Antisense RNA which regulates isiA expression: a 178-nucleotide RNA sequence from Leptolyngbyaceae cyanobacterium M65_K2018_010. Taxonomically the source falls in Leptolyngbyaceae (Bacteria, Bacillati, Cyanobacteriota, Cyanophyceae). The family's consensus secondary structure was predicted with PFOLD. It scores 96 bits against the family's covariance model.

[Rfam]
RNA sequence: GAUAGCUCCAAAGGGUAGCAAAAUCCAGGGUGGGGUCCGUGACCAAACGCACAUCGCCCAGGGUGGCAUCGUAGAGCCCCCCAAAGCGGGUGGCUUUGAACACUAACAAAAGCGCCCCGAGCCCUAAGAUAAUCAGGUGAUGGCCCAAAAUGAAGCCCAACUGUUUGGGGUCAUUCCA
Dot-bracket structure: .......................................................................................................................................((((((..(((((................)))))))))))...